[Rfam]
RNA: Lysine riboswitch aptamer
Organism: Eubacteriaceae bacterium Marseille-Q4139
RNA sequence: GAAGAUGAUAGAGGCGCAGGCUUCAAGAGUACCAGAGCCGUUUGGCUGACCCGCUGUUUCUGGGAAAGGGGAGACUGCCGAAGGGAUUCAUGCCGGGUCAGGCUGGAUUUCCUGGGCCGACGCAGAAUAUGCGGCGGACUGUCACGUAACGUGGAGCGCUAUCUGUGCU
Number, nucleotide and partner (000 for none) at each position: 001g000002a000003a000004g000005a000006u000007g163008a162009u161010a160011g159012a000013g000014g000015c000016g078017c077018a076019g075020g000021c073022u072023u071024c070025a000026a000027g000028a000029g000030u000031a000032c063033c062034a061035g060036a059037g058038c000039c000040g000041u000042u000043u000044g000045g000046c000047u000048g000049a000050c000051c000052c000053g000054c000055u000056g000057u000058u037059u036060c035061u034062g033063g032064g000065a000066a000067a000068g000069g000070g024071g023072a022073g021074a000075c019076u018077g017078c016079c000080g000081a000082a113083g112084g111085g110086a109087u000088u107089c106090a000091u000092g103093c102094c000095g000096g000097g000098u000099c000100a000101g000102g093103c092104u000105g000106g089107a088108u000109u086110u085111c084112c083113u082114g140115g139116g000117c137118c136119g135120a000121c133122g132123c131124a130125g000126a000127a000128u000129a000130u124131g123132c122133g121134g000135c119136g118137g117138a000139c115140u114141g000142u154143c153144a152145c151146g150147u000148a000149a000150c146151g145152u144153g143154g142155a000156g000157c000158g000159c011160u010161a009162u008163c007164u000165g000166u000167g000168c000169u000